[Rfam]
The family of this 75-nucleotide sequence from Sorangium cellulosum is "ASpks TB sRNA".
NCBI's taxonomy places the organism under Bacteria, Pseudomonadati, Polyangiales, Polyangiaceae, Sorangium.
It is one of the family's seed sequences.
RNA sequence: CUUGAUCGAGCCGAGCCAGAGCGGCCGCUCCGCUGUGUGCGCCUUGCCGUAGGUCGCCAGCAGCGCCUGCGCCUC
Number, nucleotide and partner (000 for none) at each position: 001c000002u000003u000004g000005a000006u000007c000008g000009a000010g000011c000012c000013g000014a000015g025016c024017c023018a000019g000020a000021g000022c000023g017024g016025c015026c000027g000028c000029u000030c000031c071032g070033c069034u000035g000036u000037g000038u065039g064040c000041g000042c000043c060044u059045u000046g000047c056048c000049g054050u000051a000052g000053g000054u049055c000056g047057c000058c000059a044060g043061c000062a000063g000064c039065g038066c000067c000068u000069g033070c032071g031072c000073c000074u000075c000